[Rfam]
RNA sequence: UGGUUAUACUUUGAUUUAGAAUUCCUACGCUUUACCUUGUUAUACGAAAAUGGCAAAGCGUUUGGAUUCUGAAACAAAUUGUUU
Numbered sequence: 001u002g003g004u005u006a007u008a009c010u011u012u013g014a015u016u017u018a019g020a021a022u023u024c025c026u027a028c029g030c031u032u033u034a035c036c037u038u039g040u041u042a043u044a045c046g047a048a049a050a051u052g053g054c055a056a057a058g059c060g061u062u063u064g065g066a067u068u069c070u071g072a073a074a075c076a077a078a079u080u081g082u083u084u
Base pairs, nucleotide, nucleotide: 010078011077012076013075015073016072017071018070019069020068022066023065024064027061028060029059030058031057032056033055035053036052
RNA: mir-927 microRNA precursor family